[Rfam]
RNA sequence: ACUUAAUUAUCUUUAAAUCACACACAUUUCGACACAUGUUCCGGGGUGCUUCAACGAUUAGGUUUAUGCCUGAUAGGUUAGGGGUCGGAUUCAUGGGAAGUGUGGAGGCCUAAC
Numbered sequence: 001a002c003u004u005a006a007u008u009a010u011c012u013u014u015a016a017a018u019c020a021c022a023c024a025c026a027u028u029u030c031g032a033c034a035c036a037u038g039u040u041c042c043g044g045g046g047u048g049c050u051u052c053a054a055c056g057a058u059u060a061g062g063u064u065u066a067u068g069c070c071u072g073a074u075a076g077g078u079u080a081g082g083g084g085u086c087g088g089a090u091u092c093a094u095g096g097g098a099a100g101u102g103u104g105g106a107g108g109c110c111u112a113a114c
Base pairs, nucleotide, nucleotide: 023104024103025102026101027100028099029098030097035095036094037093038092040089041088042087043086048085049084050083051082052081
Rfam assigns this 114-nucleotide RNA from Vibrio sp. 10N.286.49.B3 to the family "t44 RNA". About the family: This family consists of a number of bacterial RNA genes of between 135 and 170 bases in length. The family's RNA type in Rfam is small RNA. Taxonomically the source falls in Vibrio (Bacteria, Pseudomonadati, Pseudomonadota, Vibrionaceae). The family's consensus secondary structure was predicted with LocARNA.